[Rfam]
RNA sequence: GUACCCUCUCUUCUUGUCAUCCCAGUGCUUGACACUGGGAUCCAGGAAUUUUAUUAAGUUGGUAAGCAUAAAAGUAGCCGUUUUAUGUUAAAACACAACGUUCUUGAUGAGAUUACGGCAAGGCUGGAUUCCAGUGUCAAGCACUGGAAUGACAUCAUCCUUUUUUU
Numbered sequence: 001g002u003a004c005c006c007u008c009u010c011u012u013c014u015u016g017u018c019a020u021c022c023c024a025g026u027g028c029u030u031g032a033c034a035c036u037g038g039g040a041u042c043c044a045g046g047a048a049u050u051u052u053a054u055u056a057a058g059u060u061g062g063u064a065a066g067c068a069u070a071a072a073a074g075u076a077g078c079c080g081u082u083u084u085a086u087g088u089u090a091a092a093a094c095a096c097a098a099c100g101u102u103c104u105u106g107a108u109g110a111g112a113u114u115a116c117g118g119c120a121a122g123g124c125u126g127g128a129u130u131c132c133a134g135u136g137u138c139a140a141g142c143a144c145u146g147g148a149a150u151g152a153c154a155u156c157a158u159c160c161u162u163u164u165u166u167u
Stems, first nucleotide, its partner, number of pairs: 015154006022147024
Source information: A member of the RNA family "Wolbachia sRNA 46" from Trichonephila clavata, 167 nucleotides long. A search with the family's covariance model found it, with a score of 71 bits. The literature on the family includes a 2014 paper in Proc Natl Acad Sci U S A by Mayoral et al., "Wolbachia small noncoding RNAs and their role in cross-kingdom communications". Taxonomically the source falls in Trichonephila (Eukaryota, Bilateria, Protostomia, Panarthropoda). The family has 3 seed sequences and 237 matches in Rfam 15.1.